Rfam assigns this 38-nucleotide RNA sequence from Shewanella frigidimarina to the family "JUMPstart RNA". It is one of the family's seed sequences. The family's RNA type in Rfam is cis-regulatory element. Lineage of the source: Bacteria > Pseudomonadati > Pseudomonadota > Shewanella > Shewanella frigidimarina. The base pairs follow the family's consensus structure, which is taken from published work.

RNA sequence: CAGCAAUCUAGAAGCUGUAAUCUAGUGGCGGUAGCGUG
Numbered sequence: 001c002a003g004c005a006a007u008c009u010a011g012a013a014g015c016u017g018u019a020a021u022c023u024a025g026u027g028g029c030g031g032u033a034g035c036g037u038g
Stems, first nucleotide, its partner, number of pairs: 008025005